[Rfam]
RNA sequence: UCUCAUGCUGUGACCCUCCAAAGGGAAACACUUUCUGUUGUCUAAAAUAAAAGAAGGCGCGUCCCUUUGGAGUGUUACAGUUUGAGG
Dot-bracket structure: (((((.((((((((.(((.(((((((..(.(((((..((...........))))))).)..))))))).))).)))))))).)))))
RNA: mir-515 microRNA precursor family
Organism: Cercocebus atys